RNA sequence: CGCUAGCCCUGACAGAAGCGGCAUCCUUUUUCUUGCUUCUUUAGCAAGGAAAAGAUACAAGUGGAUGGCAGGAACGCUG
Numbered sequence: 001c002g003c004u005a006g007c008c009c010u011g012a013c014a015g016a017a018g019c020g021g022c023a024u025c026c027u028u029u030u031u032c033u034u035g036c037u038u039c040u041u042u043a044g045c046a047a048g049g050a051a052a053a054g055a056u057a058c059a060a061g062u063g064g065a066u067g068g069c070a071g072g073a074a075c076g077c078u079g
Stems, first nucleotide, its partner, number of pairs: 009071003013067002018062002023056003029051005035045003